[Rfam]
Nucleotides: 106
Base pairs, nucleotide, nucleotide: 003031004030007027008026009025010024012022034071035070036069037068039065040064041063086103087102088101091098092097
Number, partner (000 for none) and nucleotide at each position: 001000g002000g003031u004030u005000a006000u007027a008026u009025u010024a011000c012022c013000u014000a015000a016000a017000u018000u019000u020000g021000a022012g023000a024010u025009a026008a027007u028000u029000g030004a031003a032000u033000g034071u035070u036069u037068c038000a039065g040064c041063c042000c043000a044000g045000c046000g047000u048000g049000c050000a051000u052000u053000c054000a055000g056000c057000u058000c059000c060000u061000g062000u063041g064040g065039c066000u067000u068037g069036a070035a071034g072000u073000g074000a075000a076000a077000u078000u079000u080000u081000g082000g083000a084000a085000a086103g087102c088101u089000c090000g091098g092097c093000g094000a095000a096000a097092g098091c099000g100000a101088a102087g103086c104000a105000a106000u